A member of the RNA family "Small nucleolar RNA SNORD27" from Jaculus jaculus, 70 nucleotides long. The pairing is the family consensus, mapped onto this sequence. Lineage of the source: Eukaryota > Bilateria > Teleostomi > Euteleostomi > Jaculus. Its family is annotated with RNA processing and nucleolus in the Gene Ontology. For this family Rfam cites "A mammalian gene with introns instead of exons generating stable RNA products" (Tycowski et al., Nature, 1996).

RNA sequence: ACUGUAUGAUGAAUAUACGAUGACAAGCAUAUGGCUGAAUGGUAGUGAUGUCGUUUUACUGCUGACAAGU
Numbered sequence: 001a002c003u004g005u006a007u008g009a010u011g012a013a014u015a016u017a018c019g020a021u022g023a024c025a026a027g028c029a030u031a032u033g034g035c036u037g038a039a040u041g042g043u044a045g046u047g048a049u050g051u052c053g054u055u056u057u058a059c060u061g062c063u064g065a066c067a068a069g070u
Stems, first nucleotide, its partner, number of pairs: 001070002003067002